Shown here is a 497-nucleotide RNA sequence from Streptomyces sporangiiformans, a member of the family "Saccharopolyspora sRNA 350". A search with the family's covariance model found it, with a score of 156 bits. On this family, see Liu et al., PLoS One 2013: "Prediction and characterization of small non-coding RNAs related to secondary metabolites in Saccharopolyspora erythraea". Taxonomically the source falls in Streptomyces (Bacteria, Actinomycetota, Kitasatosporales, Streptomycetaceae).
[Rfam]
RNA sequence: CGGGCCGUGUACUCCCAGAUGGCGUCCGGGUCGGUGAUGGCCUGCUCGCCGAAGUACGCCCCGUCGGCGAGGACUCCGAGCACGGCGUCGUCCCCGUAGGGUCCCGCGCCGACCUUCUCGACCUUGCCGUGCGCGAGCAGGAAGACCUCGUCGGCCCGGCUCCCGAAGGAGGUGAGCACGGUGCCGGGCGCGAACUCCCGCUGCCGGCAGCGCCGGGCGAGCUCGUCGAGCACCUCCUCGUCCUCGAACCCGCGCAGCGCCGGAAGCUCGCCGAGCUCCGCGGGGAUGACCUGAACGCGGUCACCGGUCUUCACGAACGUGACGCGGCCGUCGCCCACGGAGUAACUGAGCCUUCGGUUCACGCGGUACGUGCCGCCCUGCACGUUCACCCACGGCAGCAUGCGCAGCAGCCACCGUGAGCUGAUCUCCUGCAUCUGCGGUGCGGACUUCGUGGUGGUCGACAAAUUCCGCGCGGCGGAUGUGCCGAGACUCUUCUG
Numbered sequence: 001c002g003g004g005c006c007g008u009g010u011a012c013u014c015c016c017a018g019a020u021g022g023c024g025u026c027c028g029g030g031u032c033g034g035u036g037a038u039g040g041c042c043u044g045c046u047c048g049c050c051g052a053a054g055u056a057c058g059c060c061c062c063g064u065c066g067g068c069g070a071g072g073a074c075u076c077c078g079a080g081c082a083c084g085g086c087g088u089c090g091u092c093c094c095c096g097u098a099g100g101g102u103c104c105c106g107c108g109c110c111g112a113c114c115u116u117c118u119c120g121a122c123c124u125u126g127c128c129g130u131g132c133g134c135g136a137g138c139a140g141g142a143a144g145a146c147c148u149c150g151u152c153g154g155c156c157c158g159g160c161u162c163c164c165g166a167a168g169g170a171g172g173u174g175a176g177c178a179c180g181g182u183g184c185c186g187g188g189c190g191c192g193a194a195c196u197c198c199c200g201c202u203g204c205c206g207g208c209a210g211c212g213c214c215g216g217g218c219g220a221g222c223u224c225g226u227c228g229a230g231c232a233c234c235u236c237c238u239c240g241u242c243c244u245c246g247a248a249c250c251c252g253c254g255c256a257g258c259g260c261c262g263g264a265a266g267c268u269c270g271c272c273g274a275g276c277u278c279c280g281c282g283g284g285g286a287u288g289a290c291c292u293g294a295a296c297g298c299g300g301u302c303a304c305c306g307g308u309c310u311u312c313a314c315g316a317a318c319g320u321g322a323c324g325c326g327g328c329c330g331u332c333g334c335c336c337a338c339g340g341a342g343u344a345a346c347u348g349a350g351c352c353u354u355c356g357g358u359u360c361a362c363g364c365g366g367u368a369c370g371u372g373c374c375g376c377c378c379u380g381c382a383c384g385u386u387c388a389c390c391c392a393c394g395g396c397a398g399c400a401u402g403c404g405c406a407g408c409a410g411c412c413a414c415c416g417u418g419a420g421c422u423g424a425u426c427u428c429c430u431g432c433a434u435c436u437g438c439g440g441u442g443c444g445g446a447c448u449u450c451g452u453g454g455u456g457g458u459c460g461a462c463a464a465a466u467u468c469c470g471c472g473c474g475g476c477g478g479a480u481g482u483g484c485c486g487a488g489a490c491u492c493u494u495c496u497g
Stems, first nucleotide, its partner, number of pairs: 007389003011385002016380001018328001021325001025322002029318001031316002035313003039309004046303001048301004054233002057230001059228001062225002065111004077106002080103001082097004117221004122216002126213002130209001132206002136202002140198002143196002149192002154189007161178001166173001235295001237293001240290003244286002249284006256277003261270002329342001331340002355375003360372004391431002394428002397425001399423002403418003407415001437476002440473001442471005448464002452460001487496002